Burkholderiales-2 RNA: a 67-nucleotide sequence. Rfam's curators put it in the seed alignment. By type it is a cis-regulatory element.
RNA sequence: GCAGAGCAGCGGCCCAUGCCCGCUGGUGCGUGUGCCGGAAAGCCCCGCAGGUGGGGCAAGCAUCGGC
Numbered sequence: 001g002c003a004g005a006g007c008a009g010c011g012g013c014c015c016a017u018g019c020c021c022g023c024u025g026g027u028g029c030g031u032g033u034g035c036c037g038g039a040a041a042g043c044c045c046c047g048c049a050g051g052u053g054g055g056g057c058a059a060g061c062a063u064c065g066g067c
Stems, first nucleotide, its partner, number of pairs: 001029003008024005034067005042057005